[Rfam]
RNA sequence: AAGCGUUGAAGUAAGGUGUUGUGCCAGGGGGCAGUGCCUUAUCAGCUUUAUAAGGGUUUAGCAUUUACCACAAUCUGGCUAGGGAGCAAAAGCUCUCAAAAGAAAAUGCUGGGA
Numbered sequence: 001a002a003g004c005g006u007u008g009a010a011g012u013a014a015g016g017u018g019u020u021g022u023g024c025c026a027g028g029g030g031g032c033a034g035u036g037c038c039u040u041a042u043c044a045g046c047u048u049u050a051u052a053a054g055g056g057u058u059u060a061g062c063a064u065u066u067a068c069c070a071c072a073a074u075c076u077g078g079c080u081a082g083g084g085a086g087c088a089a090a091a092g093c094u095c096u097c098a099a100a101a102g103a104a105a106a107u108g109c110u111g112g113g114a
Base pairs, nucleotide, nucleotide: 001048002047003046004045011042012041013040014039015038016037017036018035019034020033021032022031024078025077026076027075061109062108063107083096084095085094086093
Shown here is a 114-nucleotide RNA sequence from Ruminococcus sp. JC304, a member of the family "drum RNA".
From the family's description: Firmicutes, Bacteroidetes (1 example), Proteobacteria (2 examples), Spirochaetes (2 examples).